RNA sequence: GGAGCAGCUUCUGGAGAGACCGCAUAAUUGCGGCGCCGAAGGAUUCACAAUCUCAGGCAAAAGGACAGAAGAGUGGAA
Numbered sequence: 001g002g003a004g005c006a007g008c009u010u011c012u013g014g015a016g017a018g019a020c021c022g023c024a025u026a027a028u029u030g031c032g033g034c035g036c037c038g039a040a041g042g043a044u045u046c047a048c049a050a051u052c053u054c055a056g057g058c059a060a061a062a063g064g065a066c067a068g069a070a071g072a073g074u075g076g077a078a
Base pairs, nucleotide, nucleotide: 008071009070010069011068012067013066020033021032022031023030035058036057037056038054039053042052043051044050
A member of the RNA family "Glycine riboswitch aptamer" from Bacillus methanolicus, 78 nucleotides long.
The pairing is the family consensus, mapped onto this sequence.
Rfam links the family to the GO term glycine biosynthetic process.
The organism belongs to Bacillus methanolicus, within Bacteria.